RNA sequence: ACCGCUGAGCCAUUUCUCCAGCCCAUAAAUAAAAUAUAUAUUUUUAACUUAAAUUAAGGGCUGGAGAGAUGGCUCAGUGGU
Numbered sequence: 001a002c003c004g005c006u007g008a009g010c011c012a013u014u015u016c017u018c019c020a021g022c023c024c025a026u027a028a029a030u031a032a033a034a035u036a037u038a039u040a041u042u043u044u045u046a047a048c049u050u051a052a053a054u055u056a057a058g059g060g061c062u063g064g065a066g067a068g069a070u071g072g073c074u075c076a077g078u079g080g081u
Stems, first nucleotide, its partner, number of pairs: 002080023
RNA: mir-3473 microRNA precursor family